Shown here is a 193-nucleotide RNA sequence from Venustampulla echinocandica, a member of the family "U2 spliceosomal RNA".
The base pairs follow the family's consensus structure, which is taken from published work.
The family's RNA type in Rfam is spliceosomal small nuclear RNA.
Rfam 15.1 lists 71,512 matches to the family in 2,642 species.
[Rfam]
Nucleotides: 193
Base pairs, nucleotide, nucleotide: 008027009026010025013022014021015020048067049066050065051064052063053062068084069083070082071081072080073079113148114147115146116145118143119142120141126137127136128135129134151186152185153184154183155182156181157179158178159177160176161175
Number, partner (000 for none) and nucleotide at each position: 001000u002000u003000a004000g005000c006000u007000c008027u009026c010025u011000u012000u013022g014021c015020c016000u017000a018000u019000u020015g021014g022013c023000u024000u025010a026009g027008a028000u029000c030000a031000a032000g033000u034000g035000u036000a037000g038000u039000a040000u041000c042000u043000g044000u045000u046000c047000u048067u049066u050065u051064c052063a053062g054000u055000u056000u057000a058000a059000u060000c061000u062053c063052u064051g065050a066049a067048a068084g069083u070082c071081g072080a073079g074000u075000a076000c077000g078000u079073c080072u081071c082070g083069a084068c085000a086000c087000a088000a089000a090000g091000a092000u093000u094000a095000u096000a097000c098000u099000u100000a101000u102000u103000u104000u105000u106000g107000u108000c109000c110000c111000u112000c113148a114147g115146g116145a117000a118143a119142a120141g121000a122000c123000c124000g125000c126137c127136a128135g129134g130000c131000u132000u133000g134129c135128c136127u137126g138000u139000g140000u141120c142119u143118u144000a145116u146115c147114c148113u149000a150000c151186u152185g153184u154183g155182u156181c157179c158178u159177c160176g161175g162000u163000a164000u165000u166000a167000c168000a169000c170000u171000g172000u173000c174000u175161c176160c177159g178158a179157g180000c181156g182155a183154c184153g185152c186151g187000a188000c189000a190000a191000c192000c193000a